The record is a 213-nucleotide RNA sequence from Hansschlegelia beijingensis, which matches "permuted transfer-messenger RNA" in Rfam. By type it is a non-coding RNA gene. It scores 142 bits against the family's covariance model.
[Rfam]
RNA sequence: GGUGAUAAACGUUCGCCGCAAUAAACCCUUCGGACCCGGGGGCAGUACCCGGCGCCUCCACCAAAGUCCGCGCAAGUUCGCGGAUUUCGGCGGGGGCGAAACAGGAUCGACGGGGGCGUAAAGGGCGGGCUUUUGCCCGGCAUGGUACCGCCGUUAUCGGGCCUUUCUAUAGUUGCCAACGACAACUAUGCUCCGGUUGCUCAGGCCGCGUGA
Numbered sequence: 001g002g003u004g005a006u007a008a009a010c011g012u013u014c015g016c017c018g019c020a021a022u023a024a025a026c027c028c029u030u031c032g033g034a035c036c037c038g039g040g041g042g043c044a045g046u047a048c049c050c051g052g053c054g055c056c057u058c059c060a061c062c063a064a065a066g067u068c069c070g071c072g073c074a075a076g077u078u079c080g081c082g083g084a085u086u087u088c089g090g091c092g093g094g095g096g097c098g099a100a101a102c103a104g105g106a107u108c109g110a111c112g113g114g115g116g117c118g119u120a121a122a123g124g125g126c127g128g129g130c131u132u133u134u135g136c137c138c139g140g141c142a143u144g145g146u147a148c149c150g151c152c153g154u155u156a157u158c159g160g161g162c163c164u165u166u167c168u169a170u171a172g173u174u175g176c177c178a179a180c181g182a183c184a185a186c187u188a189u190g191c192u193c194c195g196g197u198u199g200c201u202c203a204g205g206c207c208g209c210g211u212g213a
Stems, first nucleotide, its partner, number of pairs: 001137005014127004026116003030113003036052005053098007138153004
Dot-bracket structure: (((((........((((........(((.(((...(((((.......)))))(((((((................................)))))))............)))))).......)))).....)))))((((........))))............................................................